RNA: TPP riboswitch aptamer (THI element)
RNA sequence: GAAGUCCACUAGGGGUGCCGUUUUGGCUGAGAUAAGAGUUACUCUUGAUCCCUUUGAACCUGAUCUGGUUAGUACCAGCGUAGGAAAGUGGAGUCGGCUUUCU
Numbered sequence: 001g002a003a004g005u006c007c008a009c010u011a012g013g014g015g016u017g018c019c020g021u022u023u024u025g026g027c028u029g030a031g032a033u034a035a036g037a038g039u040u041a042c043u044c045u046u047g048a049u050c051c052c053u054u055u056g057a058a059c060c061u062g063a064u065c066u067g068g069u070u071a072g073u074a075c076c077a078g079c080g081u082a083g084g085a086a087a088g089u090g091g092a093g094u095c096g097g098c099u100u101u102c103u
Stems, first nucleotide, its partner, number of pairs: 006091005011053004016047001017027004034046005059084004065078004